[Rfam]
RNA sequence: GGAACUCGCCUUUCAGGCAUCCUCUCCUAAAACUUCAUAGCCGUCCCUCGGGGCGGCUUUUUUUUUGACCUGU
Numbered sequence: 001g002g003a004a005c006u007c008g009c010c011u012u013u014c015a016g017g018c019a020u021c022c023u024c025u026c027c028u029a030a031a032a033c034u035u036c037a038u039a040g041c042c043g044u045c046c047c048u049c050g051g052g053g054c055g056g057c058u059u060u061u062u063u064u065u066u067g068a069c070c071u072g073u
Stems, first nucleotide, its partner, number of pairs: 008018004039058008
This 73-nucleotide RNA sequence from Sphingobium yanoikuyae belongs to the Rfam family "Makes More Granules Regulator RNA (mmgR)".
About the family: SuhB later renamed mmgR (makes more granules regulator) was a putative non-coding RNA found multiple times in the Agrobacterium tumefaciens genome and related alpha-proteobacteria. Other non-coding RNAs uncovered in the same analysis include: speF, ybhL, metA, and serC.Several studies inSinorhizobium meliloti showed that suhB element is indeed a non-coding RNA:firstly it was detected on Northern blot and called Sm8RNA, secondly in an RNAseq study referred to as SmelC689.The mutant phenotype's (strain lacking the small RNA) cytoplasm contains higher content of polyhydroxybutyrate (PBH)storage granules than wild type strain. The sRNA is required to limit the PBH intracellular accumulation when the nitrogen-fixing Sinorhizobium meliloti is under condition of surplus carbon in relation to nitrogen. It has been renamed to mmgR. Further study confirmed that mmgR fine-tunes the regulation of PBH storage.Northern blot confirmed the expression of the sRNA in other rhizobia species. MmgR homologues were found in most alpha-proteobacteria.
The match comes from Rfam's covariance-model search (51 bits).
The pairing is the family consensus, mapped onto this sequence.
The family is grouped with related families in Rfam's "suhB sRNA clan".
The literature on the family includes a 2016 paper in FEMS Microbiol Lett by Ceizel Borella et al., "Expression of the Sinorhizobium meliloti small RNA gene mmgR is controlled by the nitrogen source".
Rfam classes the family as a small RNA.